RNA sequence: GGUAGAAACAGCCUCACGUGAUGAUCCUUCUCUCCCUGAGUGCCCAUGGUGAUGAGUAAACCUGAGCCUCUAAGAAGUUGACUGAAGAGGCUGGCCCUCA
Numbered sequence: 001g002g003u004a005g006a007a008a009c010a011g012c013c014u015c016a017c018g019u020g021a022u023g024a025u026c027c028u029u030c031u032c033u034c035c036c037u038g039a040g041u042g043c044c045c046a047u048g049g050u051g052a053u054g055a056g057u058a059a060a061c062c063u064g065a066g067c068c069u070c071u072a073a074g075a076a077g078u079u080g081a082c083u084g085a086a087g088a089g090g091c092u093g094g095c096c097c098u099c100a
Base pairs, nucleotide, nucleotide: 009093010092011091012090013089014088015087